[Rfam]
The record is a 144-nucleotide RNA from Felis catus, which matches "U4 spliceosomal RNA" in Rfam. About the family: U4 small nuclear RNA (U4 snRNA) is a component of the major U2-dependent spliceosome. On this family, see Bertram et al., Cell 2017: "Cryo-EM Structure of a Pre-catalytic Human Spliceosome Primed for Activation". By type it is a spliceosomal small nuclear RNA. A search with the family's covariance model found it, with a score of 63 bits.

RNA sequence: AGCUUUGCACAGUGGCAGUAUUGUAGCCAGUGAGGUUUAUCUGAGGCGUGAUUAUGGCUGAUUGAAAACUUACAUGCCAUCAUUAUUGGUGUCUCUUUUCUGAGUCUCAGCCAGCUGAUUUACUUUUGGCUAAGUUUAGGAAUG
Numbered sequence: 001a002g003c004u005u006u007g008c009a010c011a012g013u014g015g016c017a018g019u020a021u022u023g024u025a026g027c028c029a030g031u032g033a034g035g036u037u038u039a040u041c042u043g044a045g046g047c048g049u050g051a052u053u054a055u056g057g058c059u060g061a062u063u064g065a066a067a068a069c070u071u072a073c074a075u076g077c078c079a080u081c082a083u084u085a086u087u088g089g090u091g092u093c094u095c096u097u098u099u100c101u102g103a104g105u106c107u108c109a110g111c112c113a114g115c116u117g118a119u120u121u122a123c124u125u126u127u128g129g130c131u132a133a134g135u136u137u138a139g140g141a142a143u144g
Stems, first nucleotide, its partner, number of pairs: 020052005026047003034042002085119002088115001090113002093110002134143003